RNA sequence: ACUUUCCAAAGAAUUCUCCUUUUGGGCUUUCUGAUUUUAUUUUAAGCCCAAAGGUGAAUUUUUUGGGAAGU
Numbered sequence: 001a002c003u004u005u006c007c008a009a010a011g012a013a014u015u016c017u018c019c020u021u022u023u024g025g026g027c028u029u030u031c032u033g034a035u036u037u038u039a040u041u042u043u044a045a046g047c048c049c050a051a052a053g054g055u056g057a058a059u060u061u062u063u064u065g066g067g068a069a070g071u
Base pairs, nucleotide, nucleotide: 001071002070003069004068005067006066007065008064009063010062011061012060013059014058015057016056018054019053020052021051022050024049025048026047027046028045029044
Rfam assigns this 71-nucleotide RNA sequence from Equus caballus to the family "mir-186 microRNA precursor family".
Gene Ontology terms of the family: RISC complex and miRNA-mediated post-transcriptional gene silencing.
Rfam's curators put it in the seed alignment.